[Rfam]
A member of the RNA family "S15-Flavobacteria ribosomal protein leader" from Flavobacterium sp. BFFFF2, 65 nucleotides long. For this family Rfam cites "Discovery of 20 novel ribosomal leader candidates in bacteria and archaea" (Eckert and Weinberg, BMC Microbiol, 2020). Lineage of the source: Bacteria > Flavobacteriia > Flavobacteriales > Flavobacteriaceae > Flavobacterium.
RNA sequence: UAUAUUUGCACCCGAAUUGGAAAGACCAAUUCAUACAUCACAAUCAUUUAUACAAUAUUAGUAUG
Numbered sequence: 001u002a003u004a005u006u007u008g009c010a011c012c013c014g015a016a017u018u019g020g021a022a023a024g025a026c027c028a029a030u031u032c033a034u035a036c037a038u039c040a041c042a043a044u045c046a047u048u049u050a051u052a053c054a055a056u057a058u059u060a061g062u063a064u065g
Stems, first nucleotide, its partner, number of pairs: 014032006
The family's RNA type in Rfam is cis-regulatory leader. A search with the family's covariance model found it, with a score of 67 bits.